RNA: Makes More Granules Regulator RNA (mmgR)
RNA sequence: AGGUCCUGCCCUUCCUGGGCGUUUCCUCCCAAUUCACUGGGCCGCCUUCUUCUCCUGGAAGGCGGCUUUUCUUUUGCCCGC
Numbered sequence: 001a002g003g004u005c006c007u008g009c010c011c012u013u014c015c016u017g018g019g020c021g022u023u024u025c026c027u028c029c030c031a032a033u034u035c036a037c038u039g040g041g042c043c044g045c046c047u048u049c050u051u052c053u054c055c056u057g058g059a060a061g062g063c064g065g066c067u068u069u070u071c072u073u074u075u076g077c078c079c080g081c
Stems, first nucleotide, its partner, number of pairs: 008020004041066009